[Rfam]
A member of the RNA family "nhaA-I RNA" from Steroidobacter denitrificans, 56 nucleotides long. From the family's description: Acidobacteria, Alphaproteobacteria, Betaproteobacteria and Gammaproteobacteria, Verrucomicrobia, cand. division NC10. A search with the family's covariance model found it, with a score of 50 bits.
RNA sequence: GGGUGUUGCGCCGCAGCGGCGGCAAGACAGGUUUAAUGCUGGUCGGGCCGCCAGCA
Numbered sequence: 001g002g003g004u005g006u007u008g009c010g011c012c013g014c015a016g017c018g019g020c021g022g023c024a025a026g027a028c029a030g031g032u033u034u035a036a037u038g039c040u041g042g043u044c045g046g047g048c049c050g051c052c053a054g055c056a
Stems, first nucleotide, its partner, number of pairs: 005028003010023003037056007